[Rfam]
The record is a 98-nucleotide RNA sequence from Ilyobacter polytropus, which matches "Purine riboswitch aptamer" in Rfam.
RNA sequence: AAAUAAAAUUUAUUUUUUUCUCAUAUAAGCUGCUAAUAAGGUGCAGUGUAUCUACGAUUAACCUAAAAUUAAUCUCUAUGAGUGAAAGCGGUUCAGCA
Numbered sequence: 001a002a003a004u005a006a007a008a009u010u011u012a013u014u015u016u017u018u019u020c021u022c023a024u025a026u027a028a029g030c031u032g033c034u035a036a037u038a039a040g041g042u043g044c045a046g047u048g049u050a051u052c053u054a055c056g057a058u059u060a061a062c063c064u065a066a067a068a069u070u071a072a073u074c075u076c077u078a079u080g081a082g083u084g085a086a087a088g089c090g091g092u093u094c095a096g097c098a
Stems, first nucleotide, its partner, number of pairs: 018084001020082006029047005056074006

It scores 59 bits against the family's covariance model.